[Rfam]
RNA sequence: GGAGGUGUGUGUCUUCGUCUGUGAUGGCACGAUAACUGAACAUUGAUCGCUUUACGUGUUAGUUUGCAGAUCUGCUCAGUGGCAACCCGUCACACCUAAAAUACAACUCUGGCAGUCCGGAUCUGGUAUCACGGGUGAACUCUCGCUGCACGGCGCCGGGCCGAACGCACGAUUGAUGUCAUUUGUGAUACAAGACUACUGCCGUUCUUACCCAACUCUUUCCAAAUUGUUGAGUAUAAAAUCGUAAUUUAAUACAGAUAGCUUAGCUUCGGAUUAAAAUUACAUUGUUCAGAACGCUUCCAUAUCACUAGGGCACCGCCGAGCGGUCGGCCCAUUCUUUUG
Numbered sequence: 001g002g003a004g005g006u007g008u009g010u011g012u013c014u015u016c017g018u019c020u021g022u023g024a025u026g027g028c029a030c031g032a033u034a035a036c037u038g039a040a041c042a043u044u045g046a047u048c049g050c051u052u053u054a055c056g057u058g059u060u061a062g063u064u065u066g067c068a069g070a071u072c073u074g075c076u077c078a079g080u081g082g083c084a085a086c087c088c089g090u091c092a093c094a095c096c097u098a099a100a101a102u103a104c105a106a107c108u109c110u111g112g113c114a115g116u117c118c119g120g121a122u123c124u125g126g127u128a129u130c131a132c133g134g135g136u137g138a139a140c141u142c143u144c145g146c147u148g149c150a151c152g153g154c155g156c157c158g159g160g161c162c163g164a165a166c167g168c169a170c171g172a173u174u175g176a177u178g179u180c181a182u183u184u185g186u187g188a189u190a191c192a193a194g195a196c197u198a199c200u201g202c203c204g205u206u207c208u209u210a211c212c213c214a215a216c217u218c219u220u221u222c223c224a225a226a227u228u229g230u231u232g233a234g235u236a237u238a239a240a241a242u243c244g245u246a247a248u249u250u251a252a253u254a255c256a257g258a259u260a261g262c263u264u265a266g267c268u269u270c271g272g273a274u275u276a277a278a279a280u281u282a283c284a285u286u287g288u289u290c291a292g293a294a295c296g297c298u299u300c301c302a303u304a305u306c307a308c309u310a311g312g313g314c315a316c317c318g319c320c321g322a323g324c325g326g327u328c329g330g331c332c333c334a335u336u337c338u339u340u341u342g
Stems, first nucleotide, its partner, number of pairs: 001301008021093005036079003041074002045072004049067002055062001312332003315327005

A member of the RNA family "Arthropod 7SK RNA" from Aedes aegypti, 342 nucleotides long. The family has 19 seed sequences and 229 matches in Rfam 15.1. Its Rfam clan is "7SK clan". Lineage of the source: Eukaryota > Arthropoda > Allotriocarida > Aedes > Stegomyia.